[Rfam]
RNA sequence: CCAGUACAAACUGAGCAGGCCGGGGCAGGUGCUCUGGAGCCGGGCCGCCCCGCGAGCGGCAGCAGAUGAGACGAACAUCUGUGGGACAGUG
Numbered sequence: 001c002c003a004g005u006a007c008a009a010a011c012u013g014a015g016c017a018g019g020c021c022g023g024g025g026c027a028g029g030u031g032c033u034c035u036g037g038a039g040c041c042g043g044g045c046c047g048c049c050c051c052g053c054g055a056g057c058g059g060c061a062g063c064a065g066a067u068g069a070g071a072c073g074a075a076c077a078u079c080u081g082u083g084g085g086a087c088a089g090u091g
Base pairs, nucleotide, nucleotide: 010090011089012088013087016085018041019040020039022035023034024033025032026031044060045059046058047057048056062082063081064080065079066078067077

Shown here is a 91-nucleotide RNA, a member of the family "NiCo (Nickel/Cobalt) riboswitch aptamer". The base pairs follow the family's consensus structure, which is taken from published work. It is one of the family's seed sequences.